[Rfam]
Nucleotides: 082
Base pairs, nucleotide, nucleotide: 009074010073011072013070014069018065019064023060024059025058026057029055030054031053032052033051034049035048036047037046038045
Number, partner (000 for none) and nucleotide at each position: 001000g002000u003000u004000u005000a006000g007000c008000c009074c010073a011072g012000a013070u014069g015000g016000c017000a018065g019064u020000g021000g022000a023060a024059a025058u026057c027000c028000u029055u030054u031053u032052c033051u034049u035048u036047u037046u038045u039000u040000u041000c042000u043000u044000u045038a046037a047036a048035a049034a050000a051033a052032g053031a054030a055029a056000a057026g058025a059024u060023u061000g062000u063000a064019a065018c066000g067000u068000a069014c070013a071000g072011c073010u074009g075000g076000a077000a078000a079000u080000a081000g082000c